This 71-nucleotide sequence from Pseudomonas panipatensis belongs to the Rfam family "narK RNA". NCBI's taxonomy places the organism under Bacteria, Pseudomonadati, Gammaproteobacteria, Pseudomonadaceae, Pseudomonas. The family's consensus secondary structure is taken from published work.
RNA sequence: GGCCCGGCCCUUGCUGUGGCCAAUGCAGUGGUAAUCAACGGCGGUUACCCGAAACACGACAAAGGCGUCGC
Numbered sequence: 001g002g003c004c005c006g007g008c009c010c011u012u013g014c015u016g017u018g019g020c021c022a023a024u025g026c027a028g029u030g031g032u033a034a035u036c037a038a039c040g041g042c043g044g045u046u047a048c049c050c051g052a053a054a055c056a057c058g059a060c061a062a063a064g065g066c067g068u069c070g071c
Stems, first nucleotide, its partner, number of pairs: 030049007